[Rfam]
RNA: MIR2593 microRNA precursor family
RNA sequence: UUAUAAGAAAAUGUUUACUUUUUAGGUUCAUUGAAUGUUUGAUGUAUUUGGUCCAUAAUAUAGACUAGAUACAUCAAACAUUCUAUGAACCUAAAAAACAAACAUUUUCUUAUAA
Dot-bracket structure: .((((((.(((((.((..(((((((.(((((.((((((((((((....((((...........))))....)))))))))))).))))).)))))))..)).))))).)))))).